[Rfam]
This 456-nucleotide part of an RNA from Mitosporidium daphniae belongs to the Rfam family "Eukaryotic large subunit ribosomal RNA". A search with the family's covariance model found it, with a score of 3158 bits. On this family, see Yusupov et al., Science 2001: "Crystal structure of the ribosome at 5.5 A resolution".

RNA sequence: GGUAGUAGCAAAUAUUCAAAUGAGAACUUUGAAGACUGAAGUGGGGAAAGGUUCCAUGGGAACAGUGAUUGACCAUGGGUGAGUCGAUCCUAAGAGGGAGGCUAACGCUGUUAAAAGUGCCCAAUCAUCAGGGCCGUGCCUCGAAAGGGAAUCAGGUUAAUAUUCCUGAACCAGACUUUGGGAUGGUAGCGGCAACGCUUGAGAGCUUGGAGACGCUGGCAGUGGUCCUGGGAAGAGUUAUCUUUUCUUCUUAACAAAGAGAGCACCCUGAAAUCAAUUGACUUGGCGAAAGGGUGGGCGCUUUGGAAGAGCCGACUCCUCGAGUUGGUCCGGUGCACCGCUGACAGCCCGUGAAAAUCCAAGGGCUAGUCGCCCCGCCUUGCGCGGGGUGUCAUCUUCAAAGCUGGUCGUACUCAUAACCGCAGCAGGUCUCCAAGGUGAAAAGCCUCUAGUUGA
Number, nucleotide and partner (000 for none) at each position: 001g000002g000003u000004a000005g000006u000007a000008g000009c000010a000011a000012a000013u000014a000015u033016u032017c031018a030019a029020a028021u000022g000023a000024g000025a000026a000027c000028u020029u019030u018031g017032a016033a015034g454035a453036c452037u451038g000039a000040a000041g000042u000043g434044g433045g432046g431047a000048a000049a414050g413051g000052u000053u000054c078055c077056a076057u075058g074059g073060g000061a000062a000063c071064a070065g000066u000067g000068a000069u000070u064071g063072a000073c059074c058075a057076u056077g055078g054079g000080u000081g000082a000083g000084u000085c410086g409087a408088u000089c148090c147091u000092a000093a000094g142095a141096g112097g111098g000099a000100g109101g108102c107103u000104a000105a000106c000107g102108c101109u100110g000111u097112u096113a000114a000115a000116a000117g000118u000119g134120c133121c132122c000123a000124a000125u000126c000127a000128u000129c000130a000131g000132g121133g120134c119135c000136g000137u000138g000139c000140c000141u095142c094143g000144a000145a000146a000147g090148g089149g000150a000151a000152u169153c168154a167155g166156g165157u000158u000159a000160a000161u000162a000163u000164u000165c156166c155167u154168g153169a152170a000171c000172c406173a405174g404175a000176c000177u402178u401179u400180g399181g398182g396183a395184u000185g000186g000187u000188a199189g198190c197191g196192g000193c000194a000195a000196c191197g190198c189199u188200u000201g000202a000203g000204a000205g000206c363207u362208u361209g360210g359211a358212g000213a000214c000215g348216c347217u346218g345219g000220c343221a342222g341223u340224g339225g338226u337227c000228c333229u332230g331231g251232g250233a249234a248235g247236a246237g000238u000239u000240a000241u000242c000243u000244u000245u000246u236247c235248u234249u233250c232251u231252u000253a000254a000255c305256a304257a303258a302259g301260a000261g000262a000263g000264c000265a295266c294267c293268c292269u291270g000271a000272a000273a000274u286275c285276a284277a283278u000279u000280g000281a000282c000283u277284u276285g275286g274287c000288g000289a000290a000291a269292g268293g267294g266295u265296g000297g000298g000299c000300g000301c259302u258303u257304u256305g255306g000307a000308a000309g000310a000311g000312c328313c327314g326315a325316c324317u323318c322319c000320u000321c000322g318323a317324g316325u315326u314327g313328g312329u000330c000331c230332g229333g228334u000335g000336c000337a226338c225339c224340g223341c222342u221343g220344a000345c218346a217347g216348c215349c000350c000351g000352u000353g000354a000355a000356a000357a000358u211359c210360c209361a208362a207363g206364g000365g000366c000367u000368a000369g000370u000371c000372g000373c000374c000375c000376c000377g000378c000379c000380u000381u000382g000383c000384g000385c000386g000387g000388g000389g000390u000391g000392u000393c000394a000395u183396c182397u000398u181399c180400a179401a178402a177403g000404c174405u173406g172407g000408u087409c086410g085411u000412a000413c050414u049415c000416a000417u000418a000419a000420c429421c428422g000423c000424a000425g000426c000427a000428g421429g420430u000431c046432u045433c044434c043435a000436a448437g447438g446439u445440g000441a000442a000443a000444a000445g439446c438447c437448u436449c000450u000451a037452g036453u035454u034455g000456a000